[Rfam]
RNA sequence: UUACUCGACGCUUUAACUAUUGAACGGUUUUGGUUUUGUCACUCUCUGUCAAAGAACAAAUUGUUUUCUGUCAGACAGUGACAAAACAGUUCAAUAGCUAAAACGUCCAGUGAC
Numbered sequence: 001u002u003a004c005u006c007g008a009c010g011c012u013u014u015a016a017c018u019a020u021u022g023a024a025c026g027g028u029u030u031u032g033g034u035u036u037u038g039u040c041a042c043u044c045u046c047u048g049u050c051a052a053a054g055a056a057c058a059a060a061u062u063g064u065u066u067u068c069u070g071u072c073a074g075a076c077a078g079u080g081a082c083a084a085a086a087c088a089g090u091u092c093a094a095u096a097g098c099u100a101a102a103a104c105g106u107c108c109a110g111u112g113a114c
Stems, first nucleotide, its partner, number of pairs: 001113005012102004017097009027087002035075004040070002055065004
The record is a 114-nucleotide RNA from Plutella xylostella, which matches "mir-8517 microRNA precursor family" in Rfam. Gene Ontology terms of the family: RISC complex and miRNA-mediated post-transcriptional gene silencing.